[Rfam]
RNA sequence: ACUGUGGAGUGUACAAGAACUUGUGAGUAGUGUGUUGCCUGCAACCACCAAAGCAUACACGAUGAAGCAGUAA
Numbered sequence: 001a002c003u004g005u006g007g008a009g010u011g012u013a014c015a016a017g018a019a020c021u022u023g024u025g026a027g028u029a030g031u032g033u034g035u036u037g038c039c040u041g042c043a044a045c046c047a048c049c050a051a052a053g054c055a056u057a058c059a060c061g062a063u064g065a066a067g068c069a070g071u072a073a
Stems, first nucleotide, its partner, number of pairs: 001071005009060005022055003030048003033043002
Dot-bracket structure: (((((...(((((........(((.....(((((.......))..)))....))))))))......)))))..
The record is a 73-nucleotide RNA, which matches "RAGATH-18 RNA" in Rfam. Rfam's curators put it in the seed alignment. About the family: Actinobacteria, Firmicutes, Fusobacteria, Thermotogae (1 example).